U11 spliceosomal RNA: a 129-nucleotide RNA from Desmophyllum pertusum. It scores 88 bits against the family's covariance model. The family's consensus secondary structure is taken from published work. Lineage of the source: Eukaryota > Anthozoa > Scleractinia > Vacatina > Desmophyllum.
[Rfam]
RNA sequence: UAAAAGGGCCUUUGCCGUCAUUGGCACGUGAGACCUUAGGGGCUUGCGCGGAAUCGCCAUCUAGAGAUUUCGGAGGCAUAAUCUUUGGAUCCUCGUGGCAGUUGGUAGCCGCUUAGCACCGACGCCCGA
Numbered sequence: 001u002a003a004a005a006g007g008g009c010c011u012u013u014g015c016c017g018u019c020a021u022u023g024g025c026a027c028g029u030g031a032g033a034c035c036u037u038a039g040g041g042g043c044u045u046g047c048g049c050g051g052a053a054u055c056g057c058c059a060u061c062u063a064g065a066g067a068u069u070u071c072g073g074a075g076g077c078a079u080a081a082u083c084u085u086u087g088g089a090u091c092c093u094c095g096u097g098g099c100a101g102u103u104g105g106u107a108g109c110c111g112c113u114u115a116g117c118a119c120c121g122a123c124g125c126c127c128g129a
Stems, first nucleotide, its partner, number of pairs: 008077005013026005027048006034041002049072007095127001097126003101123005108117002